RNA: rpsB sRNA
Organism: Caenispirillum salinarum
RNA sequence: CGCACGCGGGUGCGCGGCCCUUUGCCCGACAACGGCAACAGGGCCAUCCGGUGUCGGUACGGUCUUCGCAGGAUCGUCCGAUGACUUGCCCCGCGGAGGCCUAACCGGAAAAAGAGGACAUUA
Numbered sequence: 001c002g003c004a005c006g007c008g009g010g011u012g013c014g015c016g017g018c019c020c021u022u023u024g025c026c027c028g029a030c031a032a033c034g035g036c037a038a039c040a041g042g043g044c045c046a047u048c049c050g051g052u053g054u055c056g057g058u059a060c061g062g063u064c065u066u067c068g069c070a071g072g073a074u075c076g077u078c079c080g081a082u083g084a085c086u087u088g089c090c091c092c093g094c095g096g097a098g099g100c101c102u103a104a105c106c107g108g109a110a111a112a113a114g115a116g117g118a119c120a121u122u123a
Stems, first nucleotide, its partner, number of pairs: 001098001003096001005095006016045002025035002028033001053082005